[Rfam]
RNA: L2-Alphaproteobacteria ribosomal protein leader
RNA sequence: GGCCACCUACGGGGGGCUUUAAUCGUAGCGGGGCACCUACUCUAAGCCCUGCGAGCUAAAACGGAAGACAGAAA
Numbered sequence: 001g002g003c004c005a006c007c008u009a010c011g012g013g014g015g016g017c018u019u020u021a022a023u024c025g026u027a028g029c030g031g032g033g034c035a036c037c038u039a040c041u042c043u044a045a046g047c048c049c050u051g052c053g054a055g056c057u058a059a060a061a062c063g064g065a066a067g068a069c070a071g072a073a074a
Stems, first nucleotide, its partner, number of pairs: 001018004006014003028052007